RNA: ASdes TB sRNA
Organism: Amycolatopsis xylanica
RNA sequence: AGCUCGACCGGGUCGACGGCCCUGGUCACCAGCAGGUAGUCGCGGAUGGCGAUGCCGUGACGGCCUUC
Dot-bracket structure: ...(((.(..(((.(((.......))))))....((((.((((.....))))))))..).))).....